Shown here is a 189-nucleotide sequence from Eragrostis curvula, a member of the family "Small nucleolar RNA Z112". Clan: SNORD49 clan. The family's consensus secondary structure was predicted with PFOLD. The literature on the family includes a 2002 paper in Nucleic Acids Res by Liang et al., "A novel gene organization: intronic snoRNA gene clusters from Oryza sativa". The family's RNA type in Rfam is C/D-box small nucleolar RNA.

[Rfam]
RNA sequence: UUCCCUAUGAAGAUUCCAAGACCUACCGAUAGGAAGUGCCGUUUGACACUGUAAACAGCAGCUGCUUCACGCCACAGCAGGUGUCCAUCCUUCGACCAUAACCUUUGUGGUUUGGUCUGGGAUGGAGCUCACAUCUGCAGUGAUUUGAUUCAGCUGUGGUGCGUGAUUUAAAUCGGGUCUCUGAGGGAU
Number, nucleotide and partner (000 for none) at each position: 001u000002u188003c187004c186005c185006u000007a000008u000009g000010a000011a000012g000013a000014u000015u000016c000017c000018a000019a000020g000021a000022c000023c000024u000025a000026c000027c000028g000029a000030u000031a000032g000033g000034a000035a000036g000037u000038g000039c000040c000041g000042u000043u000044u000045g000046a000047c000048a000049c000050u000051g000052u000053a000054a000055a000056c000057a000058g000059c000060a000061g000062c000063u000064g000065c000066u000067u000068c000069a000070c000071g000072c000073c000074a000075c140076a000077g138078c137079a136080g135081g134082u133083g132084u126085c125086c124087a123088u122089c121090c120091u000092u000093c000094g117095a116096c115097c114098a113099u000100a112101a111102c110103c109104u000105u000106u000107g000108u000109g103110g102111u101112u100113u098114g097115g096116u095117c094118u000119g000120g090121g089122a088123u087124g086125g085126a084127g000128c000129u000130c000131a000132c083133a082134u081135c080136u079137g078138c077139a000140g075141u000142g000143a000144u000145u000146u000147g000148a000149u000150u000151c000152a000153g000154c000155u000156g000157u000158g000159g000160u000161g000162c000163g000164u000165g000166a000167u000168u000169u000170a000171a000172a000173u000174c000175g000176g000177g000178u000179c000180u000181c000182u000183g000184a000185g005186g004187g003188a002189u000